[Rfam]
Rfam assigns this 28-nucleotide sequence from Costertonia aggregata to the family "L19-Flavobacteria ribosomal protein leader". By type it is a cis-regulatory leader. Taxonomically the source falls in Costertonia (Bacteria, Pseudomonadati, Bacteroidota, Flavobacteriales).

RNA sequence: UAACCUCUGACGAAGUACGUGAACGUUG
Numbered sequence: 001u002a003a004c005c006u007c008u009g010a011c012g013a014a015g016u017a018c019g020u021g022a023a024c025g026u027u028g
Stems, first nucleotide, its partner, number of pairs: 001028004008023001010020003

A reference for the family is Eckert and Weinberg (2020), "Discovery of 20 novel ribosomal leader candidates in bacteria and archaea", BMC Microbiol.